This 109-nucleotide sequence from Corynebacterium ureicelerivorans belongs to the Rfam family "mraW RNA". A search with the family's covariance model found it, with a score of 59 bits. The family's RNA type in Rfam is cis-regulatory element.
[Rfam]
Nucleotides: 109
Stems, first nucleotide, its partner, number of pairs: 010096007018089002021086014041069010
Number, partner (000 for none) and nucleotide at each position: 001000a002000c003000a004000a005000g006000g007000a008000g009000a010096g011095u012094g013093u014092g015091u016090a017000c018089g019088g020000a021086c022085u023084c024083u025082g026081u027080c028079c029078g030077g031076g032075g033074c034073g035000u036000g037000a038000a039000g040000c041069g042068u043067u044066c045065u046064g047063g048062u049061g050060u051000a052000c053000u054000u055000c056000c057000c058000c059000g060050a061049c062048a063047u064046c065045a066044g067043a068042a069041c070000a071000g072000c073034c074033g075032c076031c077030c078029c079028g080027g081026g082025c083024a084023g085022g086021g087000c088019u089018c090016u091015a092014c093013g094012c095011g096010c097000u098000c099000c100000c101000c102000g103000c104000a105000c106000u107000g108000c109000a